[Rfam]
RNA sequence: CGAUCCCCCGCGGGAGAGUCCGACCGGCUCGUCGUCGAGCGGCCGGACGCCGAAGGAGCAAGCUCUCCCCGCCAACCUCUCAGGCCCAACGAACCGCGGGGAGCAG
Number, nucleotide and partner (000 for none) at each position: 001c000002g000003a000004u000005c000006c101007c100008c099009c098010g097011c096012g095013g094014g000015a000016g000017a000018g000019u047020c046021c045022g044023a000024c000025c000026g000027g000028c000029u000030c000031g000032u000033c000034g000035u000036c000037g000038a000039g000040c000041g000042g000043c000044c022045g021046g020047a019048c000049g085050c084051c083052g081053a080054a000055g000056g079057a078058g077059c000060a000061a000062g072063c071064u000065c000066u000067c000068c000069c000070c000071g063072c062073c000074a000075a000076c000077c058078u057079c056080u053081c052082a000083g051084g050085c049086c000087c000088a000089a000090c000091g000092a000093a000094c013095c012096g011097c010098g009099g008100g007101g006102a000103g000104c000105a000106g000
RNA: Glycine riboswitch aptamer